[Rfam]
RNA sequence: UGAAACUUGAGAAAAGCUGUCCCUAGUACGAGAGGACCGGGACGGACGUACCUCUAGUGUGCCAGUUGUUCCGCCAGGAGCACAGCUGGUUGGCUACGUACGGAAGGGAUAACCGCUGAAAGCAUCUAAGCGGGAAGCCUGUUUCAAGAUGAGGUUUCAUUAAGGUGCCCAGAAGACUACUGGGUUGAUAGGCCAGAGCUGGACACACCGCAAUGUGUGAAGGCGACUGGUACUAAUACACCAAA
Number, nucleotide and partner (000 for none) at each position: 001u159002g158003a157004a156005a155006c154007u153008u152009g000010a000011g145012a144013a143014a142015a000016g000017c045018u044019g043020u042021c041022c040023c039024u000025a000026g000027u000028a000029c000030g000031a000032g000033a000034g000035g000036a000037c000038c000039g023040g022041g021042a020043c019044g018045g017046a000047c102048g101049u100050a099051c098052c000053u000054c000055u096056a095057g094058u000059g000060u000061g000062c089063c088064a087065g086066u085067u082068g081069u080070u079071c078072c077073g000074c000075c000076a000077g072078g071079a070080g069081c068082a067083c000084a000085g066086c065087u064088g063089g062090u000091u000092g000093g000094c057095u056096a055097c000098g051099u050100a049101c048102g047103g000104a000105a000106g140107g139108g138109a000110u000111a000112a000113c133114c132115g131116c130117u129118g000119a000120a000121a000122g000123c000124a000125u000126c000127u000128a000129a117130g116131c115132g114133g113134g000135a000136a000137g000138c108139c107140u106141g000142u014143u013144u012145c011146a000147a000148g000149a000150u000151g000152a008153g007154g006155u005156u004157u003158c002159a001160u000161u000162a000163a000164g242165g241166u240167g239168c184169c183170c182171a181172g180173a000174a000175g000176a000177c000178u000179a000180c172181u171182g170183g169184g168185u000186u000187g000188a000189u235190a234191g233192g231193c230194c229195a228196g227197a000198g224199c223200u000201g000202g000203a000204c000205a218206c217207a216208c215209c000210g000211c000212a000213a000214u000215g208216u207217g206218u205219g000220a000221a000222g000223g199224c198225g000226a000227c196228u195229g194230g193231u192232a000233c191234u190235a189236a000237u000238a000239c167240a166241c165242c164243a000244a000245a000